[Rfam]
RNA: mir-160 microRNA precursor family
RNA sequence: UUGUGUUUGUCUUCCUGUAUGCCACACGCACAGAUCAAUCUCUUAACAAUAUUUUCUACUGUAAGUGGCUUACGAGGAGCCAAGCAUAU
Numbered sequence: 001u002u003g004u005g006u007u008u009g010u011c012u013u014c015c016u017g018u019a020u021g022c023c024a025c026a027c028g029c030a031c032a033g034a035u036c037a038a039u040c041u042c043u044u045a046a047c048a049a050u051a052u053u054u055u056c057u058a059c060u061g062u063a064a065g066u067g068g069c070u071u072a073c074g075a076g077g078a079g080c081c082a083a084g085c086a087u088a089u
Stems, first nucleotide, its partner, number of pairs: 002088005008082002011079004016074004021069004028062002